mir-306 microRNA precursor family: a 76-nucleotide RNA sequence from Helicoverpa armigera. The family has 16 seed sequences and 49 matches in Rfam 15.1.
[Rfam]
RNA sequence: CGCUGCGCCGUCUCAGGUACUAGGUGACUCUGAGUGGUCGGUCUCGGAGCCGCCUGGUGCCUCAGCACGGCGGGUG
Numbered sequence: 001c002g003c004u005g006c007g008c009c010g011u012c013u014c015a016g017g018u019a020c021u022a023g024g025u026g027a028c029u030c031u032g033a034g035u036g037g038u039c040g041g042u043c044u045c046g047g048a049g050c051c052g053c054c055u056g057g058u059g060c061c062u063c064a065g066c067a068c069g070g071c072g073g074g075u076g
Stems, first nucleotide, its partner, number of pairs: 001076004009069002012065001015062006023054004028049006035040001